This 166-nucleotide RNA from Capra hircus belongs to the Rfam family "ODC internal ribosome entry site (IRES)". Lineage of the source: Eukaryota > Bilateria > Laurasiatheria > Ruminantia > Capra. The base pairs follow the family's consensus structure, which was predicted with mfold.
RNA sequence: AUUUCCACUGCUGUACAGAGAGCACAGGCAUCUUCGGUGGACUUGGAAUUCCUGGAGAAUUGCCUUUGUGAAAAGUUGGCAUAAUCCCUUUAAAUUCCGUCUCUUACAUUUUCUACGUAAGUAUUUGUGAUUGUUGCAAGUUUAUCUUAGGAGUUACUAAGUAUUA
Numbered sequence: 001a002u003u004u005c006c007a008c009u010g011c012u013g014u015a016c017a018g019a020g021a022g023c024a025c026a027g028g029c030a031u032c033u034u035c036g037g038u039g040g041a042c043u044u045g046g047a048a049u050u051c052c053u054g055g056a057g058a059a060u061u062g063c064c065u066u067u068g069u070g071a072a073a074a075g076u077u078g079g080c081a082u083a084a085u086c087c088c089u090u091u092a093a094a095u096u097c098c099g100u101c102u103c104u105u106a107c108a109u110u111u112u113c114u115a116c117g118u119a120a121g122u123a124u125u126u127g128u129g130a131u132u133g134u135u136g137c138a139a140g141u142u143u144a145u146c147u148u149a150g151g152a153g154u155u156a157c158u159a160a161g162u163a164u165u166a
Stems, first nucleotide, its partner, number of pairs: 006079001010076003014072001016070001018067003022063003026060001039052003084165001088161003095153004